[Rfam]
RNA sequence: ACGCUUUCCCCGUAUCUCGCUGACUUUGUCGGCGACAUGCCCAGGUAGCCACCGAUCCUCAAGGCUACGACGCGGUCCCGGCCGCGUGAUCGACCAGUUCGCUCAGGCAUCCCCGGCGAACAGCCGCCCUGACCGGCGGUGAUGC
Numbered sequence: 001a002c003g004c005u006u007u008c009c010c011c012g013u014a015u016c017u018c019g020c021u022g023a024c025u026u027u028g029u030c031g032g033c034g035a036c037a038u039g040c041c042c043a044g045g046u047a048g049c050c051a052c053c054g055a056u057c058c059u060c061a062a063g064g065c066u067a068c069g070a071c072g073c074g075g076u077c078c079c080g081g082c083c084g085c086g087u088g089a090u091c092g093a094c095c096a097g098u099u100c101g102c103u104c105a106g107g108c109a110u111c112c113c114c115g116g117c118g119a120a121c122a123g124c125c126g127c128c129c130u131g132a133c134c135g136g137c138g139g140u141g142a143u144g145c
Base pairs, nucleotide, nucleotide: 011039012038013037016034019033020032021031022030023029024028045068046067047066048065049064050063054091055090056089057088070087071086072085073084074083075082116145117144118143123140124139125138126137127136128135
RNA: radC RNA